[Rfam]
Nucleotides: 078
Base pairs, nucleotide, nucleotide: 007072008071009070010069011068012067013066014065015064016063017062018061020059021058022057023056025054027052028051029050030049031048
Number, partner (000 for none) and nucleotide at each position: 001000g002000c003000g004000u005000g006000g007072g008071u009070u010069c011068c012067g013066u014065g015064c016063u017062u018061c019000c020059u021058u022057a023056c024000u025054u026000c027052c028051c029050a030049u031048a032000g033000u034000c035000a036000a037000a038000u039000g040000a041000c042000a043000a044000a045000a046000c047000g048031u049030a050029u051028g052027g053000a054025a055000u056023g057022u058021a059020a060000a061018g062017a063016a064015g065014u066013a067012u068011g069010g070009a071008g072007c073000a074000a075000a076000u077000g078000c